[Rfam]
RNA: mir-3116 microRNA precursor family
Organism: Ornithorhynchus anatinus
Nucleotides: 070
Stems, first nucleotide, its partner, number of pairs: 001070029
Number, partner (000 for none) and nucleotide at each position: 001070u002069a003068u004067u005066g006065a007064g008063u009062g010061c011060u012059u013058a014057u015056u016055g017054u018053g019052u020051g021050c022049a023048g024047a025046g026045c027044a028043c029042u030000g031000u032000a033000u034000g035000a036000a037000u038000a039000a040000a041000c042029a043028g044027u045026g046025c047024u048023c049022u050021g051020c052019a053018c054017a055016c056015a057014a058013u059012a060011a061010g062009c063008a064007c065006u066005c067004a068003a069002u070001a